Description: This 145-nucleotide RNA sequence from Haemonchus placei belongs to the Rfam family "Nematode snoRNA ceN88". The family has 6 seed sequences and 99 matches in Rfam 15.1. The literature on the family includes a 2007 paper in BMC Mol Biol by Jia et al., "Systematic identification of non-coding RNA 2,2,7-trimethylguanosine cap structures in Caenorhabditis elegans".
[Rfam]
RNA sequence: AUCCUUCCUUCUUGGCGCUCCUACUUCAAUCCGAGUAGAAGUGUAUGUAAUGGGAGGUAGAUCAUGCCCUAUGGGUGUUCGGGUCUCCUUCGGUGCUAUUCUUACAAAACUUCGGAUAGUAUCAUCCUCUGGAUUCGAGACAUCG
Numbered sequence: 001a002u003c004c005u006u007c008c009u010u011c012u013u014g015g016c017g018c019u020c021c022u023a024c025u026u027c028a029a030u031c032c033g034a035g036u037a038g039a040a041g042u043g044u045a046u047g048u049a050a051u052g053g054g055a056g057g058u059a060g061a062u063c064a065u066g067c068c069c070u071a072u073g074g075g076u077g078u079u080c081g082g083g084u085c086u087c088c089u090u091c092g093g094u095g096c097u098a099u100u101c102u103u104a105c106a107a108a109a110c111u112u113c114g115g116a117u118a119g120u121a122u123c124a125u126c127c128u129c130u131g132g133a134u135u136c137g138a139g140a141c142a143u144c145g
Stems, first nucleotide, its partner, number of pairs: 003057006010050001015044004021038006068075002078139009092123002096119006